This 130-nucleotide RNA sequence from Otolemur garnettii belongs to the Rfam family "Small nucleolar RNA SNORA11". Its family is annotated with RNA processing and nucleolus in the Gene Ontology. From the family's description: U107 (SNORA11) is a member of the H/ACA class of snoRNAs that guide the sites of modification of uridines to pseudouridines. This snoRNA was identified by RT-PCR from blood cells and its expression confirmed by Northern blot analysis. There is no predicted target for this guide snRNA. The family's consensus secondary structure was predicted with RNAalifold. The source organism's lineage runs through Eukaryota, Craniata, Dipnotetrapodomorpha, Galagidae and Otolemur.
[Rfam]
RNA sequence: GGGCUGUACUCAGAUCAGGGGGCCUAAAGAAUGGCUCCUCUGUUUAUAACAACCCAACAGGAAUCUGGGGUGAUUGUGACGAGGGGCGCAUAAAACUUGUGGCCUCCCUAGGAACACAUUCGCUACAGGU
Numbered sequence: 001g002g003g004c005u006g007u008a009c010u011c012a013g014a015u016c017a018g019g020g021g022g023c024c025u026a027a028a029g030a031a032u033g034g035c036u037c038c039u040c041u042g043u044u045u046a047u048a049a050c051a052a053c054c055c056a057a058c059a060g061g062a063a064u065c066u067g068g069g070g071u072g073a074u075u076g077u078g079a080c081g082a083g084g085g086g087c088g089c090a091u092a093a094a095a096c097u098u099g100u101g102g103c104c105u106c107c108c109u110a111g112g113a114a115c116a117c118a119u120u121c122g123c124u125a126c127a128g129g130u
Stems, first nucleotide, its partner, number of pairs: 002055002005052001007051001013045002016042006022035003068123001070121001075116003080112001083105003089101005